Small nucleolar RNA SNORD79: a 72-nucleotide RNA from Owenia fusiformis.

RNA sequence: UCCUGUCAAUGAUGAUCAUAAGUUGGGAAUCUCUCUGAAAAUAUCAAUGAAGAUUAACUUAUCUGAACAGGA
Numbered sequence: 001u002c003c004u005g006u007c008a009a010u011g012a013u014g015a016u017c018a019u020a021a022g023u024u025g026g027g028a029a030u031c032u033c034u035c036u037g038a039a040a041a042u043a044u045c046a047a048u049g050a051a052g053a054u055u056a057a058c059u060u061a062u063c064u065g066a067a068c069a070g071g072a
Stems, first nucleotide, its partner, number of pairs: 001072006
The family's RNA type in Rfam is C/D-box small nucleolar RNA. The base pairs follow the family's consensus structure, which was predicted with PFOLD. From the family's description: snoRNA U79 or Z22 is found in intron 7 of the gas5 gene in humans and is also present in mice. The literature on the family includes a 1998 paper in Mol Cell Biol by Smith and Steitz, "Classification of gas5 as a multi-small-nucleolar-RNA (snoRNA) host gene and a member of the 5'-terminal oligopyrimidine gene family reveals common features of snoRNA host genes". A search with the family's covariance model found it, with a score of 51 bits.